LOOT RNA: a 114-nucleotide RNA sequence.
It is one of the family's seed sequences.
Rfam classes the family as a small RNA.
[Rfam]
RNA sequence: GGCCUAAACCCUUUACCGGGCAUGGCGAAAGAAGUCGAGUUAAGCAUAAAGAACCCAUCAUGGGGUCGCUUAACUCGCCAUAGCGGGAAACUGCUAUGAGAAGCUUCGGCUUCU
Dot-bracket structure: .(((....(((......)))...))).........((((((((((.....((.(((.....))).)))))))))))).((((((((....))))))))((((((....))))))
Numbered sequence: 001g002g003c004c005u006a007a008a009c010c011c012u013u014u015a016c017c018g019g020g021c022a023u024g025g026c027g028a029a030a031g032a033a034g035u036c037g038a039g040u041u042a043a044g045c046a047u048a049a050a051g052a053a054c055c056c057a058u059c060a061u062g063g064g065g066u067c068g069c070u071u072a073a074c075u076c077g078c079c080a081u082a083g084c085g086g087g088a089a090a091c092u093g094c095u096a097u098g099a100g101a102a103g104c105u106u107c108g109g110c111u112u113c114u
Stems, first nucleotide, its partner, number of pairs: 002026003009020003036077010051067002054064003079098008099114006